A member of the RNA family "FMN riboswitch aptamer (RFN element)" from Bacillus oleivorans, 146 nucleotides long. Taxonomically the source falls in Bacillus (Bacteria, Bacillota, Caryophanales, Bacillaceae). A search with the family's covariance model found it, with a score of 125 bits. About the family: The RFN element is a highly conserved domain that is found frequently in the 5'-untranslated regions of prokaryotic mRNAs that encode for flavin mononucleotide (FMN) biosynthesis and transport proteins. Its family is annotated with FMN binding in the Gene Ontology.
RNA sequence: AUCUAUCUUCGGGGCAGGGUGAAAUUCCCGACCGGCGGUGAUAAGCAUUUGCUUUCAGCCCGUGACCCGUUUGGAUGUAUCAUCUAAACGGUGGAUUUGGUGAAAUUCCAAAGCCGACAGUAUAGUCUGGAUGGGAGAAGAUGGAG
Numbered sequence: 001a002u003c004u005a006u007c008u009u010c011g012g013g014g015c016a017g018g019g020u021g022a023a024a025u026u027c028c029c030g031a032c033c034g035g036c037g038g039u040g041a042u043a044a045g046c047a048u049u050u051g052c053u054u055u056c057a058g059c060c061c062g063u064g065a066c067c068c069g070u071u072u073g074g075a076u077g078u079a080u081c082a083u084c085u086a087a088a089c090g091g092u093g094g095a096u097u098u099g100g101u102g103a104a105a106u107u108c109c110a111a112a113g114c115c116g117a118c119a120g121u122a123u124a125g126u127c128u129g130g131a132u133g134g135g136a137g138a139a140g141a142u143g144g145a146g
Stems, first nucleotide, its partner, number of pairs: 003144008017029003031126002033116002035063004058114002067091004096112005118129003